[Rfam]
RNA: tRNA
Organism: Pseudo-nitzschia multistriata
RNA sequence: GACAUUGUGGCCGAGCGGUCUAAGGCGCAACGUUAAGGCCGUUGUCUUAAUUGGCGGGGGUUCGAAUCCCCUCGAUGUCA
Numbered sequence: 001g002a003c004a005u006u007g008u009g010g011c012c013g014a015g016c017g018g019u020c021u022a023a024g025g026c027g028c029a030a031c032g033u034u035a036a037g038g039c040c041g042u043u044g045u046c047u048u049a050a051u052u053g054g055c056g057g058g059g060g061u062u063c064g065a066a067u068c069c070c071c072u073c074g075a076u077g078u079c080a
Stems, first nucleotide, its partner, number of pairs: 001079007010026003028044005056072005